[Rfam]
RNA sequence: UCGGCCUGCCGGUUCACGGCCCGCUGUCCUGCGGGGCGACCCGGCGGCA
Numbered sequence: 001u002c003g004g005c006c007u008g009c010c011g012g013u014u015c016a017c018g019g020c021c022c023g024c025u026g027u028c029c030u031g032c033g034g035g036g037c038g039a040c041c042c043g044g045c046g047g048c049a
Base pairs, nucleotide, nucleotide: 004048007047009044010043011042012041017038018037020035021034022033023032024031
L31-Actinobacteria ribosomal protein leader: a 49-nucleotide RNA from Isoptericola variabilis. The family's consensus secondary structure is taken from published work. The source organism's lineage runs through Bacteria, Bacillati, Actinomycetes, Isoptericola and Isoptericola variabilis.